[Rfam]
RNA sequence: ACAACAACAAUAACAAGCAUGACCCACGAUAAUAAAAAUAAGACGUAACGGCUUCAGCACAAUAAGAACAAGAUCGCAGAAGGCGCAGCUAACUGAUUAUUUUGGAGAGGAUCGCCUCUCGGCACCACAGCCAGACAGACAACAACAAUAAAUGUCGACGGUCAGCACCCACGGGUGAAGAUCAGGGCCUGAGGUAGCGUCAGCAUCCAAAAUAAUCCGUUCGCUCUUGCUCCCACUCGGGAGGUACUCCGGACCUGAUCCGGAACAGGCACCCCAACAAGAACAACAGCCUGCAUAACAAGAACGACGUAAUGCACUACUUAAGGGGAGCUUCGGCUCCCCUUGUCGUUUCCCGCCCCGGCCUGCCCGCCACC
Numbered sequence: 001a002c003a004a005c006a007a008c009a010a011u012a013a014c015a016a017g018c019a020u021g022a023c024c025c026a027c028g029a030u031a032a033u034a035a036a037a038a039u040a041a042g043a044c045g046u047a048a049c050g051g052c053u054u055c056a057g058c059a060c061a062a063u064a065a066g067a068a069c070a071a072g073a074u075c076g077c078a079g080a081a082g083g084c085g086c087a088g089c090u091a092a093c094u095g096a097u098u099a100u101u102u103u104g105g106a107g108a109g110g111a112u113c114g115c116c117u118c119u120c121g122g123c124a125c126c127a128c129a130g131c132c133a134g135a136c137a138g139a140c141a142a143c144a145a146c147a148a149u150a151a152a153u154g155u156c157g158a159c160g161g162u163c164a165g166c167a168c169c170c171a172c173g174g175g176u177g178a179a180g181a182u183c184a185g186g187g188c189c190u191g192a193g194g195u196a197g198c199g200u201c202a203g204c205a206u207c208c209a210a211a212a213u214a215a216u217c218c219g220u221u222c223g224c225u226c227u228u229g230c231u232c233c234c235a236c237u238c239g240g241g242a243g244g245u246a247c248u249c250c251g252g253a254c255c256u257g258a259u260c261c262g263g264a265a266c267a268g269g270c271a272c273c274c275c276a277a278c279a280a281g282a283a284c285a286a287c288a289g290c291c292u293g294c295a296u297a298a299c300a301a302g303a304a305c306g307a308c309g310u311a312a313u314g315c316a317c318u319a320c321u322u323a324a325g326g327g328g329a330g331c332u333u334c335g336g337c338u339c340c341c342c343u344u345g346u347c348g349u350u351u352c353c354c355g356c357c358c359c360g361g362c363c364u365g366c367c368c369g370c371c372a373c374c
Stems, first nucleotide, its partner, number of pairs: 049085002052082004100212005114204002128177001130176003134172001153164002156161001230243005262359002266355001268291002307349003324343008
The record is a 374-nucleotide RNA from Pseudomonas fulva, which matches "Pseudomonas sRNA CrcZ" in Rfam.
It is annotated as a small RNA.
It scores 206 bits against the family's covariance model.
Gene Ontology term of the family: carbon catabolite repression of transcription.